[Rfam]
RNA sequence: CGGAUCAAUAGAGGUGCGGCUGAUCAUCAGUAAGCAGCGGAGGGGGUGAUGCCCCGAUGACGCUGGCCGAAAGGGGUCCGCCGCCGAAGAAUAAGACUUCAUCAUAGGUAUUAUUCUGGUUUCUGGCGCUAAAACGUCAGAGGCUGUCACUGCCUGGCAGUGGAGAGCUAUUGGUAUU
Numbered sequence: 001c002g003g004a005u006c007a008a009u010a011g012a013g014g015u016g017c018g019g020c021u022g023a024u025c026a027u028c029a030g031u032a033a034g035c036a037g038c039g040g041a042g043g044g045g046g047u048g049a050u051g052c053c054c055c056g057a058u059g060a061c062g063c064u065g066g067c068c069g070a071a072a073g074g075g076g077u078c079c080g081c082c083g084c085c086g087a088a089g090a091a092u093a094a095g096a097c098u099u100c101a102u103c104a105u106a107g108g109u110a111u112u113a114u115u116c117u118g119g120u121u122u123c124u125g126g127c128g129c130u131a132a133a134a135c136g137u138c139a140g141a142g143g144c145u146g147u148c149a150c151u152g153c154c155u156g157g158c159a160g161u162g163g164a165g166a167g168c169u170a171u172u173g174g175u176a177u178u
Stems, first nucleotide, its partner, number of pairs: 006173006016084005023077003034067001035065005088117007096109004118145011147163007
A member of the RNA family "Lysine riboswitch aptamer" from Spirochaeta isovalerica, 178 nucleotides long. Its family is annotated with lysine biosynthetic process in the Gene Ontology. Pairs were carried over by alignment from the consensus structure, which is taken from published work.